[Rfam]
RNA sequence: GGUAAUUGAGGUCGGAAAGGCUCCCGACACACCCGAUGCGGUACCUGAGAUGCUGGAUACGCCGCCCAGCCUUUUACU
Numbered sequence: 001g002g003u004a005a006u007u008g009a010g011g012u013c014g015g016a017a018a019g020g021c022u023c024c025c026g027a028c029a030c031a032c033c034c035g036a037u038g039c040g041g042u043a044c045c046u047g048a049g050a051u052g053c054u055g056g057a058u059a060c061g062c063c064g065c066c067c068a069g070c071c072u073u074u075u076a077c078u
Base pairs, nucleotide, nucleotide: 001078002077003076004075005074008071011028012027013026014025015024019063020062021061030047031042032041033040052070053069054068055067056066
RNA: skipping-rope RNA